[Rfam]
RNA sequence: UUAAUAAGUAGAGGUGCAUUGAAGAAAAGUACGCAGUAGGUGUUAAGAGGAAGAGGACUCAAUACUACUGGGGAAAGGCUGACGUGCCGAAGUCGUUGAAAGAACUCUAGAUUAACGGCUGGGGGGACUGGUGAAAAACUGGCUCACUGUCAUAGAUUGUAUCUAUGGAGUGCUAUUUGUUGA
Dot-bracket structure: .....((((((....((((...((.......(.((((((.........................)))))).)......))...))))...(((((((((............)))))))))((.(((.(.(........).).))).)).(((((((.....)))))))....)))))).....
Numbered sequence: 001u002u003a004a005u006a007a008g009u010a011g012a013g014g015u016g017c018a019u020u021g022a023a024g025a026a027a028a029g030u031a032c033g034c035a036g037u038a039g040g041u042g043u044u045a046a047g048a049g050g051a052a053g054a055g056g057a058c059u060c061a062a063u064a065c066u067a068c069u070g071g072g073g074a075a076a077g078g079c080u081g082a083c084g085u086g087c088c089g090a091a092g093u094c095g096u097u098g099a100a101a102g103a104a105c106u107c108u109a110g111a112u113u114a115a116c117g118g119c120u121g122g123g124g125g126g127a128c129u130g131g132u133g134a135a136a137a138a139c140u141g142g143c144u145c146a147c148u149g150u151c152a153u154a155g156a157u158u159g160u161a162u163c164u165a166u167g168g169a170g171u172g173c174u175a176u177u178u179g180u181u182g183a
Stems, first nucleotide, its partner, number of pairs: 006178006016087004023080002032072001034070006091120009121148002124145003128141001130139001150168007